[Rfam]
RNA sequence: AAUUGAAAAAGGCAAACUUAUCGAAAGGUAAGGACGCAAAGCUGCGGGUCUAAGGUUCUGAUAACUAUGAUAGCCGAGUUGCCAAA
Numbered sequence: 001a002a003u004u005g006a007a008a009a010a011g012g013c014a015a016a017c018u019u020a021u022c023g024a025a026a027g028g029u030a031a032g033g034a035c036g037c038a039a040a041g042c043u044g045c046g047g048g049u050c051u052a053a054g055g056u057u058c059u060g061a062u063a064a065c066u067a068u069g070a071u072a073g074c075c076g077a078g079u080u081g082c083c084a085a086a
Stems, first nucleotide, its partner, number of pairs: 012037002017032006040080004045076003048071003055065003